[Rfam]
RNA sequence: CUUCAGGGAGCCGAGCCACAGCGGCUGGUCCUCCGUGCGGUCCUGCCCGUACGCGGCCAGCAGCGCCUGUGCCUC
Numbered sequence: 001c002u003u004c005a006g007g008g009a010g011c012c013g014a015g016c017c018a019c020a021g022c023g024g025c026u027g028g029u030c031c032u033c034c035g036u037g038c039g040g041u042c043c044u045g046c047c048c049g050u051a052c053g054c055g056g057c058c059a060g061c062a063g064c065g066c067c068u069g070u071g072c073c074u075c
Stems, first nucleotide, its partner, number of pairs: 014026004031071001033069001038065002043060003047056003
RNA: ASpks TB sRNA